[Rfam]
RNA sequence: CUAUGGAAUUAACUCCUAGCCUCUGCAUCUAAGUCACUUUUUACACAGCGAUAUGAUGUUUUGGCCGUGACCACUGAGUCACCAGGAUGUGAGGCAGAAAUGCCCACGUCUCCCAUGUUUGGAAAGGUGUUAUGGUGAAACAACU
Numbered sequence: 001c002u003a004u005g006g007a008a009u010u011a012a013c014u015c016c017u018a019g020c021c022u023c024u025g026c027a028u029c030u031a032a033g034u035c036a037c038u039u040u041u042u043a044c045a046c047a048g049c050g051a052u053a054u055g056a057u058g059u060u061u062u063g064g065c066c067g068u069g070a071c072c073a074c075u076g077a078g079u080c081a082c083c084a085g086g087a088u089g090u091g092a093g094g095c096a097g098a099a100a101u102g103c104c105c106a107c108g109u110c111u112c113c114c115a116u117g118u119u120u121g122g123a124a125a126g127g128u129g130u131u132a133u134g135g136u137g138a139a140a141c142a143a144c145u
Base pairs, nucleotide, nucleotide: 004138006136011131012130013129015127016126019065020064021063025059026058027057028056029055033052034051035050067082068081069080070079071078085111086110087109088108089107090106093104094103095102096101112122113121

Background:
Rfam assigns this 145-nucleotide RNA from Photorhabdus laumondii to the family "Molybdenum/Tungsten riboswitch aptamer (Moco RNA motif)". It is one of the family's seed sequences. The literature on the family includes a 2007 paper in Nucleic Acids Res by Weinberg et al., "Identification of 22 candidate structured RNAs in bacteria using the CMfinder comparative genomics pipeline". Its family is annotated with regulation of gene expression, tungstate binding and molybdenum ion binding in the Gene Ontology.